[Rfam]
RNA sequence: UUGCUGUGAUGACUAUCAUUGGUUUCGCAUGUUGCUGAGUUUCAGUGAUGCCUCUUUUCUCUUGGCUGUCUGAGCAA
Numbered sequence: 001u002u003g004c005u006g007u008g009a010u011g012a013c014u015a016u017c018a019u020u021g022g023u024u025u026c027g028c029a030u031g032u033u034g035c036u037g038a039g040u041u042u043c044a045g046u047g048a049u050g051c052c053u054c055u056u057u058u059c060u061c062u063u064g065g066c067u068g069u070c071u072g073a074g075c076a077a
Base pairs, nucleotide, nucleotide: 001077002076003075004074
Shown here is a 77-nucleotide sequence from Macaca mulatta, a member of the family "Small nucleolar RNA SNORD53/SNORD92".
Its family is annotated with nucleolus and RNA processing in the Gene Ontology.
Rfam classes the family as a C/D-box small nucleolar RNA.